[Rfam]
RNA: Mammalian CPEB3 ribozyme
Organism: Alligator mississippiensis
RNA sequence: AGAUCACAAGUUUGAAGCCACAGCAGAAGUGCUCACAGUGCAGCCCUGUCAGAUUUCAACGAAUCUACGAAUUCUGCU
Numbered sequence: 001a002g003a004u005c006a007c008a009a010g011u012u013u014g015a016a017g018c019c020a021c022a023g024c025a026g027a028a029g030u031g032c033u034c035a036c037a038g039u040g041c042a043g044c045c046c047u048g049u050c051a052g053a054u055u056u057c058a059a060c061g062a063a064u065c066u067a068c069g070a071a072u073u074c075u076g077c078u
Base pairs, nucleotide, nucleotide: 014046017044018043022078023077024076025075026074027073028072029041030040031039051066052065053064054063055062056061